[Rfam]
RNA sequence: GGGAAUCCGACUGUUUAAUUAAAACAAAGCAUCGCGAUGGCCCAUGGCGGUGUGUAUGAUGUGAUUUCUGCCCAGUGCUCUGAAUGUCAAAGUGAAGAAAUUCAAUGAAGCCGUGAAUUAACGCGGCGAGAGUAACUAUGACUCUCUUAAGGUAGCCAAAUGCCUCCUCAUCUAAUUAGUGACGCGCAUGAAUGGAUGAACGAGAUUCCCACUG
Number, nucleotide and partner (000 for none) at each position: 001g210002g209003g208004a207005a206006u205007c204008c202009g201010a000011c000012u026013g025014u024015u000016u000017a000018a000019u000020u000021a000022a000023a000024a014025c013026a012027a000028a000029g062030c061031a060032u059033c058034g057035c000036g000037a000038u000039g000040g051041c050042c049043c000044a000045u000046g000047g000048c000049g042050g041051u040052g000053u000054g000055u000056a000057u034058g033059a032060u031061g030062u029063g000064a000065u000066u196067u195068c194069u000070g127071c126072c125073c000074a000075g122076u121077g118078c000079u116080c115081u000082g114083a000084a000085u113086g112087u110088c000089a000090a000091a000092g000093u104094g103095a102096a101097g000098a000099a000100a000101u096102u095103c094104a093105a000106u000107g000108a000109a000110g087111c000112c086113g085114u082115g080116a079117a000118u077119u000120a000121a076122c075123g000124c000125g072126g071127c070128g146129a145130g144131a143132g142133u141134a000135a000136c000137u000138a000139u000140g000141a133142c132143u131144c130145u129146c128147u151148u000149a000150a000151g147152g000153u000154a000155g000156c000157c000158a000159a000160a000161u000162g000163c000164c000165u000166c000167c000168u182169c181170a180171u179172c000173u000174a000175a000176u000177u000178a000179g171180u170181g169182a168183c000184g000185c000186g000187c000188a000189u000190g000191a000192a000193u000194g068195g067196a066197u000198g000199a000200a000201c009202g008203a000204g007205a006206u005207u004208c003209c002210c001211a000212c000213u000214g000